Rfam assigns this 105-nucleotide RNA from Thermofilum pendens to the family "tRNA". Pairs were carried over by alignment from the consensus structure, which is taken from published work. Taxonomically the source falls in Thermofilum pendens (Archaea, Thermoproteati, Thermoproteota, Thermofilum). By type it is a transfer RNA.
RNA sequence: GGGCCGGUCGUCUAGUGGGAGGAUGUCCGCUUGGCAUGCGGGACACGCGCCUCUCUCGGGAGGCGCGGGCGCGAAUGGUCCCGGGUUCGAAUCCCGGCCGGUCCA
Numbered sequence: 001g002g003g004c005c006g007g008u009c010g011u012c013u014a015g016u017g018g019g020a021g022g023a024u025g026u027c028c029g030c031u032u033g034g035c036a037u038g039c040g041g042g043a044c045a046c047g048c049g050c051c052u053c054u055c056u057c058g059g060g061a062g063g064c065g066c067g068g069g070c071g072c073g074a075a076u077g078g079u080c081c082c083g084g085g086u087u088c089g090a091a092u093c094c095c096g097g098c099c100g101g102u103c104c105a
Base pairs, nucleotide, nucleotide: 001104002103003102004101005100006099007098010024011023012022013021026042027041028040029039030038081097082096083095084094085093